[Rfam]
RNA sequence: UUAGCCUCCGAAUAACGAUAAAGUGAUAUAUAGGAACACUUUCUGGUUCAGACAGAGGCUUAUAUCAAAAAACUCGAAUCAGAUUUGAGGGUGAAAAAAGCUUUACUCUUUUUUGCCAUCCAAAUCUUCAUUUUCCUUUACUUGGAUAGAUUCGAAUAUCU
Numbered sequence: 001u002u003a004g005c006c007u008c009c010g011a012a013u014a015a016c017g018a019u020a021a022a023g024u025g026a027u028a029u030a031u032a033g034g035a036a037c038a039c040u041u042u043c044u045g046g047u048u049c050a051g052a053c054a055g056a057g058g059c060u061u062a063u064a065u066c067a068a069a070a071a072a073c074u075c076g077a078a079u080c081a082g083a084u085u086u087g088a089g090g091g092u093g094a095a096a097a098a099a100g101c102u103u104u105a106c107u108c109u110u111u112u113u114u115g116c117c118a119u120c121c122a123a124a125u126c127u128u129c130a131u132u133u134u135c136c137u138u139u140a141c142u143u144g145g146a147u148a149g150a151u152u153c154g155a156a157u158a159u160c161u
Stems, first nucleotide, its partner, number of pairs: 003060006014048003018044001020042002023039003075154006082126003087119001089117001091116001095113006132148001134146003

The family of this 161-nucleotide RNA from Schrenkiella parvula is "Small nucleolar RNA snoR138". Rfam links the family to the GO terms nucleolus and RNA processing. Taxonomically the source falls in Schrenkiella (Eukaryota, Viridiplantae, Streptophytina, rosids). Rfam's curators put it in the seed alignment.